Rfam assigns this 42-nucleotide RNA from Paenisporosarcina sp. HGH0030 to the family "Ribosomal protein L19 leader".
This family is a putative r-protein leader autoregulatory structure found in B. subtilis and other low-GC Gram-positive bacteria. It is located in the 5' untranslated regions of mRNAs encoding ribosomal protein L19 (rplS).
By type it is a cis-regulatory leader.
The base pairs follow the family's consensus structure, which was predicted with CMfinder.
RNA sequence: ACGGUGUUCCGCUGCAGCCAUAGUCGCUGGCAUGAGCAUCUG
Numbered sequence: 001a002c003g004g005u006g007u008u009c010c011g012c013u014g015c016a017g018c019c020a021u022a023g024u025c026g027c028u029g030g031c032a033u034g035a036g037c038a039u040c041u042g
Stems, first nucleotide, its partner, number of pairs: 003040007013032002015029004